[Rfam]
RNA sequence: ACCGCGUACUUACCUACUGUAUGGUAGCUAAGAUGCAUGUAUUUCGCCUAUUAUAUAGCGGGUAAGUACGCGGUUU
Numbered sequence: 001a002c003c004g005c006g007u008a009c010u011u012a013c014c015u016a017c018u019g020u021a022u023g024g025u026a027g028c029u030a031a032g033a034u035g036c037a038u039g040u041a042u043u044u045c046g047c048c049u050a051u052u053a054u055a056u057a058g059c060g061g062g063u064a065a066g067u068a069c070g071c072g073g074u075u076u
Stems, first nucleotide, its partner, number of pairs: 001074015017058011029046001031044001033042003
RNA: mir-7563 microRNA precursor family